[Rfam]
RNA sequence: AAGUAUUACAGCUCUUUUAGAAUUUGUCUAGCUGGUUCCUAGUCUUCCCUGGAAGCAGCCUCU
Numbered sequence: 001a002a003g004u005a006u007u008a009c010a011g012c013u014c015u016u017u018u019a020g021a022a023u024u025u026g027u028c029u030a031g032c033u034g035g036u037u038c039c040u041a042g043u044c045u046u047c048c049c050u051g052g053a054a055g056c057a058g059c060c061u062c063u
Stems, first nucleotide, its partner, number of pairs: 034060003037055001039052004